Shown here is a 106-nucleotide RNA sequence, a member of the family "cow-rumen-2 RNA".
[Rfam]
Nucleotides: 106
Stems, first nucleotide, its partner, number of pairs: 002078001007027007042101002044098001047092006060082003065077001069076002
Number, partner (000 for none) and nucleotide at each position: 001000a002078u003000u004000g005000u006000a007027g008026u009025a010024u011023u012022g013021a014000c015000c016000a017000g018000c019000a020000a021013u022012c023011a024010g025009u026008a027007c028000g029000c030000a031000u032000a033000g034000c035000c036000g037000c038000c039000a040000u041000a042101g043100g044098c045000g046000u047092u048091c049090c050089a051088g052087g053000a054000u055000g056000u057000a058000g059000c060082c061081g062080g063000a064000g065077u066000a067000c068000a069076g070075g071000a072000u073000g074000a075070c076069c077065a078002a079000c080062c081061c082060g083000u084000a085000a086000g087052c088051c089050u090049g091048g092047a093000u094000g095000u096000a097000a098044g099000a100043c101042c102000c103000c104000a105000c106000g

Notes: The sequence is in the family's curated seed alignment.